[Rfam]
Nucleotides: 085
Base pairs, nucleotide, nucleotide: 011083012082013081016079018041019040020039021038023034024033025032026031044059045058046057047056048055061076062075063074064073065072
Number, partner (000 for none) and nucleotide at each position: 001000a002000c003000g004000g005000c006000a007000c008000a009000a010000a011083c012082u013081g014000a015000a016079c017000a018041g019040g020039c021038c022000g023034u024033c025032c026031c027000c028000u029000c030000g031026g032025g033024g034023a035000g036000c037000g038021g039020g040019c041018c042000g043000g044059g045058c046057c047056g048055c049000c050000g051000c052000g053000g054000c055048g056047c057046g058045g059044c060000a061076g062075c063074g064073g065072a066000c067000g068000a069000c070000g071000a072065u073064c074063c075062g076061c077000g078000g079016g080000a081013c082012g083011g084000a085000a